The family of this 114-nucleotide RNA sequence from Bacillus sp. SJS is "DUF3800-I RNA". Rfam's curators write: Actinobacteria, Firmicutes, Fusobacteria, Proteobacteria (1 example), Tenericutes (2 examples). By type it is a small RNA.
[Rfam]
RNA sequence: UAAUGUUACAGCACAUUUUGUGACUGUCUUACUCGCGAAAAUGCUAAUUAUUAGUAAGAGUACUGUAAGUGCUCCGUUUCGUUGAGGCAUCCUGUUUAGGAUGUUAUAACUUAU
Numbered sequence: 001u002a003a004u005g006u007u008a009c010a011g012c013a014c015a016u017u018u019u020g021u022g023a024c025u026g027u028c029u030u031a032c033u034c035g036c037g038a039a040a041a042u043g044c045u046a047a048u049u050a051u052u053a054g055u056a057a058g059a060g061u062a063c064u065g066u067a068a069g070u071g072c073u074c075c076g077u078u079u080c081g082u083u084g085a086g087g088c089a090u091c092c093u094g095u096u097u098a099g100g101a102u103g104u105u106a107u108a109a110c111u112u113a114u
Base pairs, nucleotide, nucleotide: 008027009026010025011024012022013021014020032086033085034084035083036081037080040078041077042076043075044054045053046052058074059073060072061071062070063069087104088103089102090101091100092099093098
Dot-bracket structure: .......(((((((.....))).))))....((((((..(((((((.....)))...((((((.....)))))))))).)).))))(((((((....)))))))..........